[Rfam]
RNA sequence: GUCACGCGAGCGGCAACGGUUAUCGGUGAGUACCCUCAUCCUCUGGCCUACCUCUGAAACGGGAUAGUUUCAGGGGCUGUUUGCGGGUUCCGUCAGGUGGGGCUUGUUCCCGCCACUCGGGCUCGACGCUGCGUUACCCCGCAGGUCACCGAUACACGGGUUUCGUGGUCGUGAUCUGGCUGGGGCCGGGCUGACCCGGUUAGUG
Dot-bracket structure: .................(((((..((((((....))))))...)))))..(((.((((((......)))))).)))........((((.(((...(((((((.....)))))))...))))))).................(((((((.((((.((((.....))))))))))))))).......(((((....)))))......
Annotation
The family of this 205-nucleotide sequence is "ilvB-OMG RNA". Pairs were carried over by alignment from the consensus structure, which is taken from published work. Rfam's curators put it in the seed alignment.